[Rfam]
RNA sequence: AGCGGCACGGAUGCCGCUGGUUCCACUCCUUACGAGUUUGCAACGCAAACUCGAAGCUGAAAAAUGUACACGGAUGUCCGAUCAUAAGCCGGA
Numbered sequence: 001a002g003c004g005g006c007a008c009g010g011a012u013g014c015c016g017c018u019g020g021u022u023c024c025a026c027u028c029c030u031u032a033c034g035a036g037u038u039u040g041c042a043a044c045g046c047a048a049a050c051u052c053g054a055a056g057c058u059g060a061a062a063a064a065u066g067u068a069c070a071c072g073g074a075u076g077u078c079c080g081a082u083c084a085u086a087a088g089c090c091g092g093a
Base pairs, nucleotide, nucleotide: 001018002017003016004015005014006013033053034052035051036050037049038048039047040046041045056089057088058087060085063082065080066079068077069076

Overview:
A member of the RNA family "TD-2 RNA" from Treponema denticola, 93 nucleotides long. Pairs were carried over by alignment from the consensus structure, which is taken from published work. The family has 36 seed sequences and 310 matches in Rfam 15.1. Rfam's curators put it in the seed alignment. The literature on the family includes a 2007 paper in Nucleic Acids Res by Weinberg et al., "Identification of 22 candidate structured RNAs in bacteria using the CMfinder comparative genomics pipeline". NCBI's taxonomy places the organism under Bacteria, Pseudomonadati, Spirochaetia, Treponema, Treponema denticola.